[Rfam]
RNA: DUF3800-V RNA
RNA sequence: UUAAAUAAGCAAUAAGACCUUUAUGAGUUGUUCUAGAUGUUCCCAUCCAUCGGUUGGCCAUAGUCUAGACGUUACAAACUUAUAAGGCAUGCUUCCCCA
Numbered sequence: 001u002u003a004a005a006u007a008a009g010c011a012a013u014a015a016g017a018c019c020u021u022u023a024u025g026a027g028u029u030g031u032u033c034u035a036g037a038u039g040u041u042c043c044c045a046u047c048c049a050u051c052g053g054u055u056g057g058c059c060a061u062a063g064u065c066u067a068g069a070c071g072u073u074a075c076a077a078a079c080u081u082a083u084a085a086g087g088c089a090u091g092c093u094u095c096c097c098c099a
Stems, first nucleotide, its partner, number of pairs: 005094001009092002024082006031076001032069007043057003047053002